[Rfam]
Nucleotides: 158
Stems, first nucleotide, its partner, number of pairs: 001022001003020005037054003061138003106121003110118002
Number, partner (000 for none) and nucleotide at each position: 001022u002000a003020c004019c005018g006017g007016c008000c009000u010000u011000c012000c013000a014000c015000c016007g017006c018005c019004g020003g021000c022001g023000c024000g025000g026000g027000c028000u029000a030000c031000u032000g033000a034000a035000a036000a037054g038053g039052c040000u041000u042000g043000u044000c045000c046000u047000u048000c049000a050000u051000u052039g053038c054037c055000a056000g057000g058000u059000g060000u061138g062137c063136g064000g065000g066000c067000g068000g069000g070000a071000u072000u073000c074000a075000u076000c077000c078000c079000a080000a081000c082000c083000a084000a085000u086000c087000c088000a089000c090000g091000g092000c093000a094000g095000c096000a097000c098000a099000g100000u101000u102000g103000a104000u105000c106121u107120g108119a109000a110118c111117g112000c113000a114000a115000g116000g117111c118110g119108u120107c121106g122000u123000c124000g125000c126000g127000u128000c129000u130000c131000c132000a133000u134000c135000g136063u137062g138061c139000g140000a141000c142000g143000g144000c145000u146000c147000c148000g149000g150000a151000a152000c153000g154000u155000u156000c157000a158000g